[Rfam]
About this RNA: The family of this 89-nucleotide sequence from Oceanithermus profundus is "c-di-GMP-II-GAG riboswitch aptamer". On this family, see Weinberg et al., Proc Natl Acad Sci U S A 2017: "Bioinformatic analysis of riboswitch structures uncovers variant classes with altered ligand specificity". Lineage of the source: Bacteria > Thermotogati > Deinococcota > Thermaceae > Oceanithermus profundus. Rfam links the family to the GO terms cyclic-di-GMP binding and regulation of gene expression.
RNA sequence: UGUGUAGUUGGAGGCGAUGACCCGCCAGGUCCCUAUACGGGCGCCAAGGGACGAGCGGCGAGCCAGUGGCGCGACCGACCAAACCCCUA
Numbered sequence: 001u002g003u004g005u006a007g008u009u010g011g012a013g014g015c016g017a018u019g020a021c022c023c024g025c026c027a028g029g030u031c032c033c034u035a036u037a038c039g040g041g042c043g044c045c046a047a048g049g050g051a052c053g054a055g056c057g058g059c060g061a062g063c064c065a066g067u068g069g070c071g072c073g074a075c076c077g078a079c080c081a082a083a084c085c086c087c088u089a
Stems, first nucleotide, its partner, number of pairs: 001089002004086001008082004013064003022058004029052003039076002041072005